Overview
The family of this 80-nucleotide RNA from Chiloscyllium punctatum is "mir-203 microRNA precursor family". The family's consensus secondary structure was predicted with RNAalifold. Lineage of the source: Eukaryota > Metazoa > Vertebrata > Selachii > Chiloscyllium. Rfam links the family to the GO terms miRNA-mediated post-transcriptional gene silencing and RISC complex.
RNA sequence: UCCUCCCGGGUGCAGUGGUUCUAAACAGUUCAACAGUUCUCUAUCGACAUUGUGAAAUGUUUAGGACCACUUGAUCCGCA
Numbered sequence: 001u002c003c004u005c006c007c008g009g010g011u012g013c014a015g016u017g018g019u020u021c022u023a024a025a026c027a028g029u030u031c032a033a034c035a036g037u038u039c040u041c042u043a044u045c046g047a048c049a050u051u052g053u054g055a056a057a058u059g060u061u062u063a064g065g066a067c068c069a070c071u072u073g074a075u076c077c078g079c080a
Stems, first nucleotide, its partner, number of pairs: 014071006021064002024061004029056004